[Rfam]
Nucleotides: 139
Stems, first nucleotide, its partner, number of pairs: 004058004016045002019042001073126004091114002
Number, partner (000 for none) and nucleotide at each position: 001000a002000u003000c004058c005057c006056c007055g008000u009000u010000u011000u012000a013000g014000u015000c016045c017044c018000u019042u020000u021000c022000a023000u024000u025000c026000g027000c028000a029000c030000c031000a032000c033000c034000a035000u036000g037000a038000a039000u040000g041000g042019a043000c044017g045016g046000c047000u048000a049000u050000g051000c052000u053000a054000a055007c056006g057005g058004g059000g060000u061000a062000g063000a064000a065000u066000a067000a068000a069000c070000a071000c072000u073126g074125u075124c076123a077000u078000g079000g080000u081000c082000u083000g084000a085000a086000g087000g088000u089000g090000u091114g092113g093000c094000u095000a096000g097000c098000u099000g100000a101000c102000u103000g104000u105000g106000c107000g108000c109000u110000c111000c112000a113092c114091u115000a116000a117000a118000u119000a120000a121000a122000a123076u124075g125074a126073c127000a128000g129000c130000a131000u132000a133000u134000u135000u136000c137000a138000a139000a